[Rfam]
RNA sequence: CGUCUCCUCCAAUCUUCUUGAAUUGGAUUCAGCCCGCAAGCCGACAAGGCCUGCGGGCUUUUUUUU
Numbered sequence: 001c002g003u004c005u006c007c008u009c010c011a012a013u014c015u016u017c018u019u020g021a022a023u024u025g026g027a028u029u030c031a032g033c034c035c036g037c038a039a040g041c042c043g044a045c046a047a048g049g050c051c052u053g054c055g056g057g058c059u060u061u062u063u064u065u066u
Base pairs, nucleotide, nucleotide: 008027009026010025011024012023031059032058033057034056035055036054037053038052